[Rfam]
RNA sequence: AAAUCAGAUAGAGGUUGCGAUUAACAUCAGUCCCACCGGUUAGUGUCCACAACACGUUGACCCGGUGCAAAAGGGAAGAUCGCCGAAACAAUCUUGCGCGUGGACGCCGGGUUGUUGGGACAAGGUCGAAUAGAUCUUGCACUGUCGCCAAUUCAGUUGGCGGGGCGCUAUCAAACAU
Numbered sequence: 001a002a003a004u005c006a007g008a009u010a011g012a013g014g015u016u017g018c019g020a021u022u023a024a025c026a027u028c029a030g031u032c033c034c035a036c037c038g039g040u041u042a043g044u045g046u047c048c049a050c051a052a053c054a055c056g057u058u059g060a061c062c063c064g065g066u067g068c069a070a071a072a073g074g075g076a077a078g079a080u081c082g083c084c085g086a087a088a089c090a091a092u093c094u095u096g097c098g099c100g101u102g103g104a105c106g107c108c109g110g111g112u113u114g115u116u117g118g119g120a121c122a123a124g125g126u127c128g129a130a131u132a133g134a135u136c137u138u139g140c141a142c143u144g145u146c147g148c149c150a151a152u153u154c155a156g157u158u159g160g161c162g163g164g165g166c167g168c169u170a171u172c173a174a175a176c177a178u
Base pairs, nucleotide, nucleotide: 007172008171009170010169011168017083018082019081020080021079022078025075034067035066036065037064038063039062087116088115089114090113091112092111093110094109096107097106098105117143118142121139122138123137124136125135126134127133145163146162147161148160149159150158151157
The record is a 178-nucleotide sequence from Lacticaseibacillus saniviri, which matches "Lysine riboswitch aptamer" in Rfam. The family's consensus secondary structure is taken from published work. NCBI's taxonomy places the organism under Bacteria, Bacillati, Bacillota, Lacticaseibacillus, Lacticaseibacillus saniviri. From the family's description: Riboswitches are metabolite binding domains within certain messenger RNAs that serve as precision sensors for their corresponding targets.